Shown here is a 170-nucleotide RNA sequence from Flavobacterium sp. TAB 87, a member of the family "Group II catalytic intron D1-D4-3". From the family's description: Group II introns are found in rRNA, tRNA and mRNA of organelles in fungi, plants and protists, and also in mRNA in bacteria.
RNA sequence: GAAGAAGUGAUUCUUUGAGUGAAGGAAGCCCAACGGCAAAAGUCUGUACCGAGGAACACAAAGCGCAUAAGAGGCUAACUAAAUUGGGUAAGUAUGCACAGCAAUGCAAAGCCUUUAGACAACAGGUUUAGUUAGUAGAUGCGUCGGGGAUAGAUGGAAAGAAGAAGUGC
Numbered sequence: 001g002a003a004g005a006a007g008u009g010a011u012u013c014u015u016u017g018a019g020u021g022a023a024g025g026a027a028g029c030c031c032a033a034c035g036g037c038a039a040a041a042g043u044c045u046g047u048a049c050c051g052a053g054g055a056a057c058a059c060a061a062a063g064c065g066c067a068u069a070a071g072a073g074g075c076u077a078a079c080u081a082a083a084u085u086g087g088g089u090a091a092g093u094a095u096g097c098a099c100a101g102c103a104a105u106g107c108a109a110a111g112c113c114u115u116u117a118g119a120c121a122a123c124a125g126g127u128u129u130a131g132u133u134a135g136u137a138g139a140u141g142c143g144u145c146g147g148g149g150a151u152a153g154a155u156g157g158a159a160a161g162a163a164g165a166a167g168u169g170c
Base pairs, nucleotide, nucleotide: 001016002015003014004013005012006011028170029169031167037161042155043154044153045152046151047149049147050146051145063144064143065142066141067140068139074136075135076134078132079131080130081129082128083127084126086114087113088112089111092107093106094105095104

Rfam links the family to the GO term Group II intron splicing.